Rfam assigns this 595-nucleotide part of an RNA from Streptomyces sp. TverLS-915 to the family "Bacterial small subunit ribosomal RNA". Its Rfam clan is "SSU clan". The source organism's lineage runs through Bacteria, Actinomycetota, Actinomycetes, Kitasatosporales and Streptomyces.
RNA sequence: UGACGGGGGCCCGCACAAGCAGCGGAGCAUGUGGCUUAAUUCGACGCAACGCGAAGAACCUUACCAAGGCUUGACAUACACCGGAAACGGCCAGAGAUGGUCGCCCCCUUGUGGUCGGUGUACAGGUGGUGCAUGGCUGUCGUCAGCUCGUGUCGUGAGAUGUUGGGUUAAGUCCCGCAACGAGCGCAACCCUUGUCCCGUGUUGCCAGCAAGCCCUUCGGGGUGUUGGGGACUCACGGGAGACCGCCGGGGUCAACUCGGAGGAAGGUGGGGACGACGUCAAGUCAUCAUGCCCCUUAUGUCUUGGGCUGCACACGUGCUACAAUGGCCGGUACAAUGAGCUGCGAUACCGCGAGGUGGAGCGAAUCUCAAAAAGCCGGUCUCAGUUCGGAUUGGGGUCUGCAACUCGACCCCAUGAAGUCGGAGUUGCUAGUAAUCGCAGAUCAGCAUUGCUGCGGUGAAUACGUUCCCGGGCCUUGUACACACCGCCCGUCACGUCACGAAAGUCGGUAACACCCGAAGCCGGUGGCCCAACCCCUUGUGGGAGGGAGCUGUCGAAGGUGGGACCAGCGAUUGGGACGAAGUCGUAACAAGG
Numbered sequence: 001u002g003a004c005g006g007g008g009g010c011c012c013g014c015a016c017a018a019g020c021a022g023c024g025g026a027g028c029a030u031g032u033g034g035c036u037u038a039a040u041u042c043g044a045c046g047c048a049a050c051g052c053g054a055a056g057a058a059c060c061u062u063a064c065c066a067a068g069g070c071u072u073g074a075c076a077u078a079c080a081c082c083g084g085a086a087a088c089g090g091c092c093a094g095a096g097a098u099g100g101u102c103g104c105c106c107c108c109u110u111g112u113g114g115u116c117g118g119u120g121u122a123c124a125g126g127u128g129g130u131g132c133a134u135g136g137c138u139g140u141c142g143u144c145a146g147c148u149c150g151u152g153u154c155g156u157g158a159g160a161u162g163u164u165g166g167g168u169u170a171a172g173u174c175c176c177g178c179a180a181c182g183a184g185c186g187c188a189a190c191c192c193u194u195g196u197c198c199c200g201u202g203u204u205g206c207c208a209g210c211a212a213g214c215c216c217u218u219c220g221g222g223g224u225g226u227u228g229g230g231g232a233c234u235c236a237c238g239g240g241a242g243a244c245c246g247c248c249g250g251g252g253u254c255a256a257c258u259c260g261g262a263g264g265a266a267g268g269u270g271g272g273g274a275c276g277a278c279g280u281c282a283a284g285u286c287a288u289c290a291u292g293c294c295c296c297u298u299a300u301g302u303c304u305u306g307g308g309c310u311g312c313a314c315a316c317g318u319g320c321u322a323c324a325a326u327g328g329c330c331g332g333u334a335c336a337a338u339g340a341g342c343u344g345c346g347a348u349a350c351c352g353c354g355a356g357g358u359g360g361a362g363c364g365a366a367u368c369u370c371a372a373a374a375a376g377c378c379g380g381u382c383u384c385a386g387u388u389c390g391g392a393u394u395g396g397g398g399u400c401u402g403c404a405a406c407u408c409g410a411c412c413c414c415a416u417g418a419a420g421u422c423g424g425a426g427u428u429g430c431u432a433g434u435a436a437u438c439g440c441a442g443a444u445c446a447g448c449a450u451u452g453c454u455g456c457g458g459u460g461a462a463u464a465c466g467u468u469c470c471c472g473g474g475c476c477u478u479g480u481a482c483a484c485a486c487c488g489c490c491c492g493u494c495a496c497g498u499c500a501c502g503a504a505a506g507u508c509g510g511u512a513a514c515a516c517c518c519g520a521a522g523c524c525g526g527u528g529g530c531c532c533a534a535c536c537c538c539u540u541g542u543g544g545g546a547g548g549g550a551g552c553u554g555u556c557g558a559a560g561g562u563g564g565g566a567c568c569a570g571c572g573a574u575u576g577g578g579a580c581g582a583a584g585u586c587g588u589a590a591c592a593a594g595g
Stems, first nucleotide, its partner, number of pairs: 001483002003480003007477007015467002019430005024323001026321008034312002040055004064307007077122002080119005088103006107114002125296002128294004134290002136285003139281001141279002146185006152161003164177004191273004196241007206230002210228003244264002247261005327382007339370003344363002349358003389420001394415007436459007486594001488591001491587002496581004501576003506571002509568003514563004522556001524554004530549003535545002